[Rfam]
Rfam assigns this 54-nucleotide sequence from [Enterobacter] lignolyticus to the family "ClpQY promoter". The base pairs follow the family's consensus structure. The organism belongs to [Enterobacter] lignolyticus, within Bacteria. The sequence is in the family's curated seed alignment. The family's RNA type in Rfam is cis-regulatory element. The literature on the family includes a 2009 paper in Open Microbiol J by Lien et al., "Regulation of clpQ(+)Y(+) (hslV(+)U(+)) gene expression in Escherichia coli".

RNA sequence: CCCCGUACGCUGUGCGGGGCCCCUAUUCUGCUUUGUACCAGGGGGUCCUUCGUG
Numbered sequence: 001c002c003c004c005g006u007a008c009g010c011u012g013u014g015c016g017g018g019g020c021c022c023c024u025a026u027u028c029u030g031c032u033u034u035g036u037a038c039c040a041g042g043g044g045g046u047c048c049u050u051c052g053u054g
Base pairs, nucleotide, nucleotide: 001019002018003017004016005015006014007013008012